[Rfam]
RNA sequence: AGUCGACUAAGCGACUCUAAACAGCAUUUAGGCUUAGUGCGUUCCCCUGCUCACGCGGGGGAGGUAUGG
Numbered sequence: 001a002g003u004c005g006a007c008u009a010a011g012c013g014a015c016u017c018u019a020a021a022c023a024g025c026a027u028u029u030a031g032g033c034u035u036a037g038u039g040c041g042u043u044c045c046c047c048u049g050c051u052c053a054c055g056c057g058g059g060g061g062a063g064g065u066a067u068g069g
Stems, first nucleotide, its partner, number of pairs: 001016004006038006025068003032040001042063008

The record is a 69-nucleotide sequence, which matches "Pistol ribozyme" in Rfam. A reference for the family is Weinberg et al. (2015), "New classes of self-cleaving ribozymes revealed by comparative genomics analysis", Nat Chem Biol.